Shown here is a 167-nucleotide RNA sequence from Oscillospiraceae bacterium Marseille-Q3528, a member of the family "Clostridiales-1 RNA". The family's consensus secondary structure is taken from published work. The match comes from Rfam's covariance-model search (132 bits).
RNA sequence: UGAUUAUAGGGUCGAAAAGUCUUCGCCCACCUGUGCUCGCACAGAAGUGGGUGAAAGACCUUGAGACCCGUGCCAACAUGAGCAUAAAAGUGGGAUGUUAAUCCCGCGAUAUGCGAAUGGGGGGCAGAAUUGCGGGAGUGCGAAGCACGGAGCAAUUCGUGGAAUCA
Numbered sequence: 001u002g003a004u005u006a007u008a009g010g011g012u013c014g015a016a017a018a019g020u021c022u023u024c025g026c027c028c029a030c031c032u033g034u035g036c037u038c039g040c041a042c043a044g045a046a047g048u049g050g051g052u053g054a055a056a057g058a059c060c061u062u063g064a065g066a067c068c069c070g071u072g073c074c075a076a077c078a079u080g081a082g083c084a085u086a087a088a089a090g091u092g093g094g095a096u097g098u099u100a101a102u103c104c105c106g107c108g109a110u111a112u113g114c115g116a117a118u119g120g121g122g123g124g125c126a127g128a129a130u131u132g133c134g135g136g137a138g139u140g141c142g143a144a145g146c147a148c149g150g151a152g153c154a155a156u157u158c159g160u161g162g163a164a165u166c167a
Stems, first nucleotide, its partner, number of pairs: 001167005007161001010068004016062002019059005026051005031044005073123002077119003082114004090107007127158007138148004